[Rfam]
RNA sequence: GCAUGGGUCUGGAUUUAUGAUAGGCCUGUACUCCUGGGUCUCUUCAGUGCCCCAUGCCAGAGCAAACUGUGGCCUUGAAUCAUUGCCUGGCCUCUGCCCGUAGGCUGCAGGCACUGAAGCAGGUUACACAGUG
Numbered sequence: 001g002c003a004u005g006g007g008u009c010u011g012g013a014u015u016u017a018u019g020a021u022a023g024g025c026c027u028g029u030a031c032u033c034c035u036g037g038g039u040c041u042c043u044u045c046a047g048u049g050c051c052c053c054a055u056g057c058c059a060g061a062g063c064a065a066a067c068u069g070u071g072g073c074c075u076u077g078a079a080u081c082a083u084u085g086c087c088u089g090g091c092c093u094c095u096g097c098c099c100g101u102a103g104g105c106u107g108c109a110g111g112c113a114c115u116g117a118a119g120c121a122g123g124u125u126a127c128a129c130a131g132u133g
Stems, first nucleotide, its partner, number of pairs: 001057004005052004015047002019044002022041003025037002070126006081116002086111002088107006
Small nucleolar RNA SNORA42/SNORA80 family: a 133-nucleotide RNA sequence from Myotis davidii. The match comes from Rfam's covariance-model search (123 bits). The organism belongs to Myotis, within Eukaryota. About the family: The members of this family belong to the H/ACA class of snoRNAs that guide the sites of modification of uridines to pseudouridines. Human ACA42 (SNORA42) was cloned from HeLa cells by immunoprecipitation with anti-GAR1 antibody. Its is predicted to guide the pseudouridylation of residues U109 and U572 of 18S rRNA. ACA42 shares the same host gene with ACA26, ACA46, ACA50. This family also includes mammalian snoRNA ACA67 (SNORA80) which was identified by computational screening and its expression in mouse experimentally verified by Northern blot and primer extension analysis. Gene Ontology terms of the family: nucleolus and RNA processing.